[Rfam]
RNA sequence: CGCGGAAACAUCAUUGAGUGCAGCGUUGAUGAAAUCGGUUCCCGUUUUCCGGGGUUGGUUCUCGCUCGGACGGAAAGGUAUCCGGAUCGGUUUCGCCAGCGCUGCGCUCAAUUAUGUUUCUA
Numbered sequence: 001c002g003c004g005g006a007a008a009c010a011u012c013a014u015u016g017a018g019u020g021c022a023g024c025g026u027u028g029a030u031g032a033a034a035u036c037g038g039u040u041c042c043c044g045u046u047u048u049c050c051g052g053g054g055u056u057g058g059u060u061c062u063c064g065c066u067c068g069g070a071c072g073g074a075a076a077g078g079u080a081u082c083c084g085g086a087u088c089g090g091u092u093u094c095g096c097c098a099g100c101g102c103u104g105c106g107c108u109c110a111a112u113u114a115u116g117u118u119u120c121u122a
Stems, first nucleotide, its partner, number of pairs: 006119006013112016030095008
The record is a 122-nucleotide RNA sequence from Rhodamnia argentea, which matches "MIR397 microRNA precursor family" in Rfam.
The match comes from Rfam's covariance-model search (69 bits).
Gene Ontology terms of the family: RISC complex and miRNA-mediated post-transcriptional gene silencing.
A reference for the family is Mica et al. (2009), "High throughput approaches reveal splicing of primary microRNA transcripts and tissue specific expression of mature microRNAs in Vitis vinifera", BMC Genomics.